This 74-nucleotide RNA sequence belongs to the Rfam family "Fibro-purF RNA". Rfam classes the family as a cis-regulatory element.
[Rfam]
RNA sequence: GUCCGCUUCCCUGCUUGCAUCCGUACGGAUGGGCUGUGACCUUCGAGGUAGGGGAGGCAUACAUUCAAAGAGGC
Numbered sequence: 001g002u003c004c005g006c007u008u009c010c011c012u013g014c015u016u017g018c019a020u021c022c023g024u025a026c027g028g029a030u031g032g033g034c035u036g037u038g039a040c041c042u043u044c045g046a047g048g049u050a051g052g053g054g055a056g057g058c059a060u061a062c063a064u065u066c067a068a069a070g071a072g073g074c
Stems, first nucleotide, its partner, number of pairs: 005058007018031005039049003